The record is a 90-nucleotide RNA sequence, which matches "nadA riboswitch" in Rfam. The family's RNA type in Rfam is small RNA. Rfam's curators put it in the seed alignment.

[Rfam]
RNA sequence: GGCUGCAACAUCCCCGUGGGUGGGGUCGCUGCUGAGGAGUCUGGCAAAGCCGCCAGGUGUUUCGGUGACGACAGUGCAUCCGCUGCAGCC
Numbered sequence: 001g002g003c004u005g006c007a008a009c010a011u012c013c014c015c016g017u018g019g020g021u022g023g024g025g026u027c028g029c030u031g032c033u034g035a036g037g038a039g040u041c042u043g044g045c046a047a048a049g050c051c052g053c054c055a056g057g058u059g060u061u062u063c064g065g066u067g068a069c070g071a072c073a074g075u076g077c078a079u080c081c082g083c084u085g086c087a088g089c090c
Stems, first nucleotide, its partner, number of pairs: 001090007013076001014074001016083007023075001025072004030067008